RNA sequence: GAGGCGAACAGGAACCAAUUAUCGCUAGUGCGUUAGUUGGGCCGUAAGUCGCCAAUAUUAUUUGGUCGUAUUAAAGGUCAUAUGUGUAUCUCUCUGGUACAUGUGUAUUACCAUUGCGAACAACAAAA
Numbered sequence: 001g002a003g004g005c006g007a008a009c010a011g012g013a014a015c016c017a018a019u020u021a022u023c024g025c026u027a028g029u030g031c032g033u034u035a036g037u038u039g040g041g042c043c044g045u046a047a048g049u050c051g052c053c054a055a056u057a058u059u060a061u062u063u064g065g066u067c068g069u070a071u072u073a074a075a076g077g078u079c080a081u082a083u084g085u086g087u088a089u090c091u092c093u094c095u096g097g098u099a100c101a102u103g104u105g106u107a108u109u110a111c112c113a114u115u116g117c118g119a120a121c122a123a124c125a126a127a128a
Base pairs, nucleotide, nucleotide: 003053004052005051006050007049011043012042015040016039017038018037019036020035021034023032024031025030066119067118068117069116070114071113076112077111078110080106081105083103084102085101086100087099090097
RNA: Nematode snoRNA ceN39
Organism: Angiostrongylus costaricensis